[Rfam]
RNA: Plastid-ycf3 group II-D1 intron
RNA sequence: AUUCUUUUAGUCGUGUAUCCUCGAUUAAUGCAACCUCAGAUGCU
Numbered sequence: 001a002u003u004c005u006u007u008u009a010g011u012c013g014u015g016u017a018u019c020c021u022c023g024a025u026u027a028a029u030g031c032a033a034c035c036u037c038a039g040a041u042g043c044u
Stems, first nucleotide, its partner, number of pairs: 010025004032044001034042001